[Rfam]
The family of this 240-nucleotide RNA from Pelistega europaea is "permuted transfer-messenger RNA". Taxonomically the source falls in Pelistega (Bacteria, Pseudomonadati, Pseudomonadota, Burkholderiales). For this family Rfam cites "Phylogenetic analysis of tmRNA secondary structure" (Williams and Bartel, RNA, 1996). Rfam classes the family as a non-coding RNA gene.
RNA sequence: AGCUGUAUAUCUGGUCGACUGACAGAUUUCUGGACGCGGGUUCAACUCCCGCCGUCUCCACCAAUAGGGCAUUUCCCCGUGCAGGUUUAGGCAUGGCGAUGUUACUUUAGAGUGUCUUAUUGAUGGGGACGUAUUGGUUUCGACAGGGAUAAAUAGGAAGAUUGGCAGCCGGUAGGCGAUGACCGUAAAUCAAGCAAUGUUAUAACUGCAAAUGACGAAAAAUUUGCUUUAGCCGCCUAA
Number, nucleotide and partner (000 for none) at each position: 001a000002g169003c168004u167005g166006u000007a000008u000009a000010u000011c000012u000013g000014g000015u159016c000017g000018a000019c000020u000021g000022a000023c000024a000025g000026a150027u149028u148029u000030c146031u145032g144033g000034a000035c000036g052037c051038g050039g049040g048041u000042u000043c000044a000045a000046c000047u000048c040049c039050c038051g037052c036053c131054g130055u129056c128057u127058c126059c125060a000061c000062c000063a000064a000065u000066a000067g000068g000069g000070c000071a000072u000073u000074u000075c000076c000077c000078c000079g000080u000081g000082c000083a000084g000085g000086u000087u000088u000089a000090g000091g000092c000093a000094u000095g000096g000097c000098g000099a000100u000101g000102u000103u000104a000105c000106u000107u000108u000109a000110g000111a000112g000113u000114g000115u000116c000117u000118u000119a000120u000121u000122g000123a000124u000125g059126g058127g057128g056129a055130c054131g053132u000133a000134u000135u000136g000137g000138u000139u000140u000141c000142g000143a000144c032145a031146g030147g000148g028149a027150u026151a000152a000153a000154u000155a000156g000157g000158a000159a015160g000161a000162u000163u000164g000165g000166c005167a004168g003169c002170c185171g184172g183173u182174a000175g000176g000177c000178g000179a000180u000181g000182a173183c172184c171185g170186u000187a000188a000189a000190u000191c000192a000193a000194g000195c000196a000197a000198u000199g000200u000201u000202a000203u000204a000205a000206c000207u000208g000209c000210a000211a000212a000213u000214g000215a000216c000217g000218a000219a000220a000221a000222a000223u000224u000225u000226g000227c000228u000229u000230u000231a000232g000233c000234c000235g000236c000237c000238u000239a000240a000